[Rfam]
Nucleotides: 583
Base pairs, nucleotide, nucleotide: 001577002576003575004574005573006572007571010569011568012567014564015563022398023397024396025395027394028393029390030389031388032387033386035193036192037191038190042185043184044183045182046181047180048179051158052157053156055154056153057152058151059150060149061148062147063146064145065144066143067142068141078140079139080138081137082136085123086122087121100113101112102111103110104109162173163172164171165170196209197207198206199205210232211231212230213229214228215227235338236337241293242292243291244290245289246288247273248272250268251267252266253265254264255263274283275282298324299323300322301321302320303319304318305317306316326335328333349376350375351374352373353372355371356370357369358368359367407448408447409446411445412442413441414440415439416438417437418436422432423431459534460532461531462530463529464526465523466522467521468520469519472497473496476491477490478489479488480487500512501511502510503509540558541557542556543555544553545552546551
Number, partner (000 for none) and nucleotide at each position: 001577c002576c003575c004574c005573c006572a007571a008000g009000g010569g011568g012567a013000a014564g015563c016000g017000a018000a019000g020000a021000c022398c023397c024396u025395a026000u027394a028393g029390a030389g031388c032387u033386u034000u035193a036192c037191u038190g039000c040000a041000g042185g043184c044183u045182g046181u047180c048179g049000c050000u051158g052157g053156g054000a055154c056153g057152u058151g059150g060149u061148c062147g063146c064145u065144a066143a067142c068141g069000u070000g071000c072000a073000g074000g075000a076000u077000a078140g079139g080138u081137a082136g083000g084000a085123g086122c087121c088000g089000u090000u091000a092000c093000a094000c095000a096000g097000g098000u099000a100113c101112c102111c103110g104109c105000g106000c107000u108000a109104g110103c111102g112101g113100g114000c115000c116000a117000c118000c119000g120000a121087g122086g123085c124000a125000u126000c127000c128000g129000u130000g131000a132000a133000a134000u135000a136082c137081u138080a139079c140078c141068c142067g143066u144065u145064a146063g147062u148061g149060a150059c151058u152057g153056c154055g155000a156053c157052c158051c159000u160000c161000a162173c163172u164171c165170c166000u167000g168000g169000c170165g171164g172163a173162g174000g175000a176000c177000a178000c179048c180047g181046g182045u183044a184043g185042c186000c187000g188000g189000g190038c191037a192036g193035u194000u195000u196209g197207a198206c199205u200000g201000g202000g203000g204000c205199g206198g207197u208000a209196c210232g211231c212230g213229c214228u215227c216000g217000a218000a219000a220000a221000g222000a223000u224000a225000u226000c227215g228214a229213g230212c231211g232210c233000g234000c235338c236337c237000c238000a239000a240000g241293a242292u243291u244290u245289c246288c247273u248272c249000a250268c251267g252266c253265g254264g255263g256000u257000c258000g259000g260000g261000a262000a263255c264254c265253c266252g267251c268250g269000g270000a271000a272248g273247a274283g275282c276000g277000c278000a279000a280000g281000a282275g283274c284000a285000a286000a287000a288246g289245g290244a291243a292242g293241u294000c295000u296000g297000a298324c299323a300322g301321u302320g303319u304318c305317a306316u307000u308000c309000c310000c311000a312000a313000c314000g315000a316306g317305u318304g319303a320302c321301g322300c323299u324298g325000a326335c327000g328333c329000g330000a331000a332000a333328g334000c335326g336000u337236g338235g339000u340000c341000u342000a343000g344000c345000g346000a347000a348000c349376g350375g351374a352373c353372c354000a355371g356370g357369c358368c359367u360000c361000u362000c363000c364000a365000u366000g367359a368358g369357g370356c371355c372353g373352g374351u375350u376349u377000a378000c379000g380000a381000c382000a383000g384000a385000a386033a387032a388031g389030c390029u391000a392000c393028c394027u395025u396024a397023g398022g399000g400000a401000u402000a403000a404000c405000a406000g407448a408447g409446u410000c411445g412442u413441c414440a415439c416438a417437g418436g419000c420000a421000a422432g423431a424000g425000c426000a427000c428000a429000u430000a431423u432422c433000g434000a435000c436418c437417c438416u439415g440414u441413g442412g443000c444000u445411u446409g447408c448407u449000a450000c451000c452000u453000c454000g455000a456000u457000g458000u459534c460532g461531g462530u463529u464526c465523c466522c467521u468520c469519c470000a471000u472497c473496c474000u475000g476491c477490c478489c479488g480487u481000g482000c483000a484000g485000a486000a487480g488479c489478g490477g491476g492000c493000a494000a495000g496473g497472g498000u499000g500512a501511g502510g503509u504000u505000g506000u507000u508000c509503g510502c511501c512500u513000a514000u515000u516000a517000a518000a519469g520468g521467a522466g523465g524000u525000c526464g527000u528000g529463a530462g531461c532460u533000g534459g535000g536000u537000u538000u539000a540558g541557a542556c543555c544553g545552u546551c547000g548000u549000g550000a551546g552545a553544c554000a555543g556542g557541u558540c559000g560000g561000c562000u563015g564014c565000u566000a567012u568011c569010u570000a571007u572006u573005g574004g575003g576002g577001g578000u579000g580000u581000u582000a583000c
A member of the RNA family "Archaeal large subunit ribosomal RNA" from Candidatus Halobonum tyrrellensis, 583 nucleotides of a longer RNA. Pairs were carried over by alignment from the consensus structure, which is taken from published work. The organism belongs to Candidatus Halobonum tyrrellensis, within Archaea. A search with the family's covariance model found it, with a score of 2808 bits.